[Rfam]
RNA sequence: UGCUCCGGCGCCAAGGGCGAUCUAGUUCAAGAAACACGACGGUGAAAGAACCCCUGCCAAACCCCACCCCUCCCCCGCGCCGCCGCCGAUUUGGAUCUCACCCGCCAGGGUGAACAUCGUCAACUCAGCUGGAUUUCAGGCCGGUUGCUUGCUCUACGCUCGCCGCAACACGACCGCUGACAUGCAGCACGCAUGCAACGGCCCUCGCAGGGCUGGCAUCCCAAUGCGAGGGCCUGACCACCAAGGAAGAACCAUUUCCCG
Numbered sequence: 001u002g003c004u005c006c007g008g009c010g011c012c013a014a015g016g017g018c019g020a021u022c023u024a025g026u027u028c029a030a031g032a033a034a035c036a037c038g039a040c041g042g043u044g045a046a047a048g049a050a051c052c053c054c055u056g057c058c059a060a061a062c063c064c065c066a067c068c069c070c071u072c073c074c075c076c077g078c079g080c081c082g083c084c085g086c087c088g089a090u091u092u093g094g095a096u097c098u099c100a101c102c103c104g105c106c107a108g109g110g111u112g113a114a115c116a117u118c119g120u121c122a123a124c125u126c127a128g129c130u131g132g133a134u135u136u137c138a139g140g141c142c143g144g145u146u147g148c149u150u151g152c153u154c155u156a157c158g159c160u161c162g163c164c165g166c167a168a169c170a171c172g173a174c175c176g177c178u179g180a181c182a183u184g185c186a187g188c189a190c191g192c193a194u195g196c197a198a199c200g201g202c203c204c205u206c207g208c209a210g211g212g213c214u215g216g217c218a219u220c221c222c223a224a225u226g227c228g229a230g231g232g233c234c235u236g237a238c239c240a241c242c243a244a245g246g247a248a249g250a251a252c253c254a255u256u257u258c259c260c261g
Base pairs, nucleotide, nucleotide: 007242008241010239016084017083018082019081098113099112100111101110102109103108128164130162131161132160200234201233202232203231204230206228207227208226210222211221212220245259246258247257248256249255
This 261-nucleotide sequence from Streptomyces sp. HGB0020 belongs to the Rfam family "Streptomyces sRNA 4677". A reference for the family is Hindra et al. (2014), "Complex intra-operonic dynamics mediated by a small RNA in Streptomyces coelicolor", PLoS One. The source organism's lineage runs through Bacteria, Bacillati, Kitasatosporales, Streptomycetaceae and Streptomyces. Rfam describes the family as follows. Located in the intergenic region between anti-sigma factor SCO4677 gene and a putative regulatory protein gene SCO4676. scr4677 expression requires the SCO4677 activity and scr4677 sRNA itself seem to affect the levels of the SCO4676-associated transcripts. The pairing is the family consensus, mapped onto this sequence.